Record summary
This 87-nucleotide RNA sequence from Triplophysa tibetana belongs to the Rfam family "Small nucleolar RNA SNORD60". It scores 66 bits against the family's covariance model. The family's RNA type in Rfam is C/D-box small nucleolar RNA. Taxonomically the source falls in Triplophysa (Eukaryota, Chordata, Craniata, Actinopterygii).
RNA sequence: AGCCAGUGAUGAUAUUAAAAAAUAUUUCUGACACCUCGUAUGAACGCUGAAUUUCAGCGGUUGAUUCUACUUGCUUGUCUGAGGCUC
Numbered sequence: 001a002g003c004c005a006g007u008g009a010u011g012a013u014a015u016u017a018a019a020a021a022a023u024a025u026u027u028c029u030g031a032c033a034c035c036u037c038g039u040a041u042g043a044a045c046g047c048u049g050a051a052u053u054u055c056a057g058c059g060g061u062u063g064a065u066u067c068u069a070c071u072u073g074c075u076u077g078u079c080u081g082a083g084g085c086u087c
Stems, first nucleotide, its partner, number of pairs: 001086004046058005